[Rfam]
RNA sequence: AACCACACUAUCGAUAAAUGGAUUCACCUACGAAAUGACAUGGUUGCUUCACCUAGGACAAGGACAUGGCAUCAUAUUACCAGCCAUCGCACGAAAUUAAUAGGAUGCCAUGUUCUCAUCCAAGAUGGAACAACCACGUCAUCUCAUGAGUGAAUCCAUUCAUCAAUAGUGUGGUU
Numbered sequence: 001a002a003c004c005a006c007a008c009u010a011u012c013g014a015u016a017a018a019u020g021g022a023u024u025c026a027c028c029u030a031c032g033a034a035a036u037g038a039c040a041u042g043g044u045u046g047c048u049u050c051a052c053c054u055a056g057g058a059c060a061a062g063g064a065c066a067u068g069g070c071a072u073c074a075u076a077u078u079a080c081c082a083g084c085c086a087u088c089g090c091a092c093g094a095a096a097u098u099a100a101u102a103g104g105a106u107g108c109c110a111u112g113u114u115c116u117c118a119u120c121c122a123a124g125a126u127g128g129a130a131c132a133a134c135c136a137c138g139u140c141a142u143c144u145c146a147u148g149a150g151u152g153a154a155u156c157c158a159u160u161c162a163u164c165a166a167u168a169g170u171g172u173g174g175u176u
Base pairs, nucleotide, nucleotide: 001176002175003174004173005172006171007170009168010167011166013164014163015162017160018159019158021156022155023154024153025152026151027150030147032145033144035142036141037140038139039138041136042135043134044133045132046131048129051126054123057120058119063114064113065112069108070107071106072105073104075102076101077100078099079098086097087096
MIR807 microRNA precursor family: a 176-nucleotide RNA sequence from Oryza sativa. The base pairs follow the family's consensus structure, which was predicted with WAR. The literature on the family includes a 2006 paper in FEBS Lett by Luo et al., "Rice embryogenic calli express a unique set of microRNAs, suggesting regulatory roles of microRNAs in plant post-embryogenic development". The organism belongs to Oryza sativa, within Eukaryota.